[Rfam]
RNA sequence: AAUUAGUAUCGGCAAACCUUCCGAAAGGGGGGGACGCAAAGCCAUGGGUCUAAAGACACAAGUCAAUGACUGCCAGGUUGCAAUU
Numbered sequence: 001a002a003u004u005a006g007u008a009u010c011g012g013c014a015a016a017c018c019u020u021c022c023g024a025a026a027g028g029g030g031g032g033g034a035c036g037c038a039a040a041g042c043c044a045u046g047g048g049u050c051u052a053a054a055g056a057c058a059c060a061a062g063u064c065a066a067u068g069a070c071u072g073c074c075a076g077g078u079u080g081c082a083a084u085u
Stems, first nucleotide, its partner, number of pairs: 012037002017032006040079004045075003048070003055064003